Rfam assigns this 217-nucleotide sequence from Monodelphis domestica to the family "Small nucleolar RNA U3". Rfam classes the family as a C/D-box small nucleolar RNA. On this family, see Zwieb, Nucleic Acids Res 1997: "The uRNA database". The sequence is in the family's curated seed alignment. The organism belongs to Monodelphis, within Eukaryota. Clan: U3 clan. From the family's description: Small nucleolar RNAs (snoRNAs) are involved in the processing and modification of rRNA in the nucleolus. There are two main classes of snoRNAs: the box C/D class, and the box H/ACA class. U3 snoRNA is a member of the box C/D class. Indeed, the box C/D element is a subset of the six short sequence elements found in all U3 snoRNAs, namely boxes A, A', B, C, C', and D. The U3 snoRNA secondary structure is characterised by a small 5' domain (with boxes A and A'), and a larger 3' domain (with boxes B, C, C', and D), the two domains being linked by a single-stranded hinge. Boxes B and C form the B/C motif, which appears to be exclusive to U3 snoRNAs, and boxes C' and D form the C'/D motif. The latter is functionally similar to the C/D motifs found in other snoRNAs. The 5' domain and the hinge region act as a pre-rRNA-binding domain. The 3' domain has conserved protein-binding sites. Both the box B/C and box C'/D motifs are sufficient for nuclear retention of U3 snoRNA. The box C'/D motif is also necessary for nucleolar localisation, stability and hyper-methylation of U3 snoRNA. Both box B/C and C'/D motifs are involved in specific protein interactions and are necessary for the rRNA processing functions of U3 snoRNA. The base pairs follow the family's consensus structure, which is taken from published work. The family has 87 seed sequences and 19,072 matches in Rfam 15.1.
[Rfam]
RNA sequence: AAGACUAUACUUUCAGGGAUCAUUUCUAUAGUAUGUUACUAGAGAAUUGUGGCUGAAAGUGUAGCACGGAGGUAACCACGAGGAGGAGCUGUAGUGUUCUCUUCUGAGCGUGAAGCUGGCUUGUGGUGCUGCUUUCCAGCAGCUGCUACCUGCCAUUGAUGAUCGUUCUUCUCUGCUUUUGGGCAGGGUGAGAGGAAGAGAACGCAAGCUGAGUGGC
Dot-bracket structure: .((..((((((...((((.....))))..))))))...))........((...(......)..))..........((((..............((((((((((((..(((.......(((...(((((((((......))))).))))...))).........)))..((((((.((...))..)))).))..)))))))))))).......)))).